[Rfam]
RNA sequence: GUGCCUUAAACUAAUGAGUAAGGAAAAUAACGUGCCUUGGUAACGCUUGGCACUACCAAGCAUUCUUUGGUACCAAUUUUUGGAGGGGUACAGGUCGUCCCUGUGCGGUUUGCUUACUUUCGCAGACUGCUGGGUUGUUGUGAUCUGCCCC
Numbered sequence: 001g002u003g004c005c006u007u008a009a010a011c012u013a014a015u016g017a018g019u020a021a022g023g024a025a026a027a028u029a030a031c032g033u034g035c036c037u038u039g040g041u042a043a044c045g046c047u048u049g050g051c052a053c054u055a056c057c058a059a060g061c062a063u064u065c066u067u068u069g070g071u072a073c074c075a076a077u078u079u080u081u082g083g084a085g086g087g088g089u090a091c092a093g094g095u096c097g098u099c100c101c102u103g104u105g106c107g108g109u110u111u112g113c114u115u116a117c118u119u120u121c122g123c124a125g126a127c128u129g130c131u132g133g134g135u136u137g138u139u140g141u142g143a144u145c146u147g148c149c150c151c
Base pairs, nucleotide, nucleotide: 004023005022006021007020008019032053033052034051035050036049039046055071056070057069058068059067085151086150087149088148089147092146093145094144095143096142097141098140101134105130106129107128109126110125111124112123113122
This 151-nucleotide RNA sequence from Araneus ventricosus belongs to the Rfam family "U12 minor spliceosomal RNA".
Pairs were carried over by alignment from the consensus structure.
Rfam links the family to the GO terms U12 snRNP, mRNA branch site recognition and pre-mRNA branch point binding.
The match comes from Rfam's covariance-model search (122 bits).